[Rfam]
RNA sequence: AAAGGAGCAAUAAUUAUUUUCUUGUUUUAUCAAGUGGGUGCUAUUGCUCCUGCAUUU
Numbered sequence: 001a002a003a004g005g006a007g008c009a010a011u012a013a014u015u016a017u018u019u020u021c022u023u024g025u026u027u028u029a030u031c032a033a034g035u036g037g038g039u040g041c042u043a044u045u046g047c048u049c050c051u052g053c054a055u056u057u
Stems, first nucleotide, its partner, number of pairs: 003051010014040001019036001021034004

Plastid-psbA-3 3UTR RNA: a 57-nucleotide RNA sequence from Capsicum baccatum. About the family: Plastid psbA-3 is a non-coding RNA (ncRNA) present in plastids. It was identified in inverted repeat sequences in the 3 prime untranslate region (3UTR) of photosystem II quinone-binding protein (psbA). The organism belongs to Capsicum, within Eukaryota. Pairs were carried over by alignment from the consensus structure, which was predicted with LocARNA. Its Rfam clan is "Plastid-psbA 3UTR RNA clan". The match comes from Rfam's covariance-model search (54 bits).